[Rfam]
RNA sequence: AUUGAAAUGAUGAUAUCUUAUUCUCUGAAAAAUAUAAUGUGGAUUAAAAAAAUCAUACUAAAAUUAUCUGAUCAUU
Numbered sequence: 001a002u003u004g005a006a007a008u009g010a011u012g013a014u015a016u017c018u019u020a021u022u023c024u025c026u027g028a029a030a031a032a033u034a035u036a037a038u039g040u041g042g043a044u045u046a047a048a049a050a051a052a053u054c055a056u057a058c059u060a061a062a063a064u065u066a067u068c069u070g071a072u073c074a075u076u
Stems, first nucleotide, its partner, number of pairs: 001076001003074003
The family of this 76-nucleotide RNA sequence from Durio zibethinus is "Small nucleolar RNA R160". About the family: snoR160 is a C/D box small nucleolar RNA, which acts as a methylation guide for 25S ribosomal RNA in plants. snoR160 has been alternatively named snoZ270 in rice. The organism belongs to Durio, within Eukaryota. By type it is a C/D-box small nucleolar RNA.